RNA sequence: GCGUGGGUCGGCCCGCUGUGUGCUGGCUGAGUGGGCUGGGGGACGCCGCCGCCUCAUUCCCCGCGGGUGGCGGAGCGGUCCGGGGGGCGUGGUACGCCUCUCGGACCGCC
Numbered sequence: 001g002c003g004u005g006g007g008u009c010g011g012c013c014c015g016c017u018g019u020g021u022g023c024u025g026g027c028u029g030a031g032u033g034g035g036c037u038g039g040g041g042g043a044c045g046c047c048g049c050c051g052c053c054u055c056a057u058u059c060c061c062c063g064c065g066g067g068u069g070g071c072g073g074a075g076c077g078g079u080c081c082g083g084g085g086g087g088c089g090u091g092g093u094a095c096g097c098c099u100c101u102c103g104g105a106c107c108g109c110c
Stems, first nucleotide, its partner, number of pairs: 001109002006076001008074001009038009039044001046073009077107013
The family of this 110-nucleotide RNA from Streptomyces buecherae is "Streptomyces RNA 4115". About the family: Identified by deep sequencing of transcriptome at the end of exponential growth phase. Sequencing size consistent with notrthern blot size. Streptomyces specific. For this family Rfam cites "Deep sequencing-based identification of small non-coding RNAs in Streptomyces coelicolor" (Vockenhuber et al., RNA Biol, 2011). By type it is a small RNA. The source organism's lineage runs through Bacteria, Bacillati, Kitasatosporales, Streptomycetaceae and Streptomyces.